[Rfam]
Nucleotides: 131
Stems, first nucleotide, its partner, number of pairs: 002060005007054003012049002015047006023039004071123007083112005089106004094101001
Number, partner (000 for none) and nucleotide at each position: 001000a002060u003059c004058g005057a006056g007054g008053c009052u010000a011000g012049a013048g014000u015047c016046a017045c018044g019043c020042u021000u022000g023039g024038g025037u026036a027000u028000c029000a030000g031000c032000u033000u034000a035000u036026u037025g038024c039023c040000u041000u042020a043019g044018u045017g046016u047015g048013c049012u050000a051000g052009a053008g054007u055000c056006c057005u058004c059003g060002a061000a062000g063000a064000g065000u066000a067000a068000u069000u070000g071123c072122u073121g074120a075119c076118c077117u078000u079000a080000u081000u082000c083112a084111c085110u086109g087108g088000c089106u090105g091104u092103g093000a094101c095000c096000c097000u098000c099000a100000u101094g102000a103092c104091a105090u106089a107000g108087u109086c110085a111084g112083u113000c114000a115000c116000c117077g118076g119075g120074u121073u122072a123071g124000u125000g126000a127000c128000a129000u130000c131000a
The record is a 131-nucleotide sequence from Callorhinus ursinus, which matches "Small nucleolar RNA SNORA3/SNORA45 family" in Rfam. Rfam links the family to the GO terms nucleolus and RNA processing. A reference for the family is Huttenhofer et al. (2001), "RNomics: an experimental approach that identifies 201 candidates for novel, small, non-messenger RNAs in mouse", EMBO J. A search with the family's covariance model found it, with a score of 112 bits. The family has 6 seed sequences and 2,080 matches in Rfam 15.1. Clan: SNORA3 clan. The members of this family belong to the H/ACA class of snoRNAs which are thought to guide the sites of modification of uridines to pseudouridines. This family includes mouse snoMBI-28 and human homologues ACA3 (SNORA3) and ACA3-2 (SNORA45). Both ACA3 and ACA3-2 share the same host gene. MBI-28, ACA3 and ACA3-2 are all predicted to guide the pseudouridylation of residues in 28S rRNA.